Rfam assigns this 95-nucleotide sequence from Chelatococcus reniformis to the family "Repression of heat shock gene expression (ROSE) element".

RNA sequence: GCCAAGGCCAAAAAGGCUUGGUUCAUAAGGGCCGCCGGGUCAUUCGGCGGCUUGUCGUACCCCAUGUUGCUCGUUGGAGGAUGUGGUUAUGCGAA
Numbered sequence: 001g002c003c004a005a006g007g008c009c010a011a012a013a014a015g016g017c018u019u020g021g022u023u024c025a026u027a028a029g030g031g032c033c034g035c036c037g038g039g040u041c042a043u044u045c046g047g048c049g050g051c052u053u054g055u056c057g058u059a060c061c062c063c064a065u066g067u068u069g070c071u072c073g074u075u076g077g078a079g080g081a082u083g084u085g086g087u088u089a090u091g092c093g094a095a
Stems, first nucleotide, its partner, number of pairs: 001022006008016002029053010056091004062086007070079003
Overview
For this family Rfam cites "A mRNA-based thermosensor controls expression of rhizobial heat shock genes" (Nocker et al., Nucleic Acids Res, 2001). This family represents a 5' UTR cis-regulatory element found in heat shock mRNAs and is known as the ROSE (repression of heat shock gene expression) element. The ROSE element is a negative regulator of heat shock gene expression. The secondary structure is thought to be regulated by temperature. This regulation blocks access to the ribosome binding site under normal conditions. It scores 60 bits against the family's covariance model. It is annotated as an RNA thermoregulator. The family's consensus secondary structure is taken from published work. Gene Ontology terms of the family: regulation of translation and response to temperature stimulus. NCBI's taxonomy places the organism under Bacteria, Pseudomonadota, Hyphomicrobiales, Chelatococcaceae, Chelatococcus.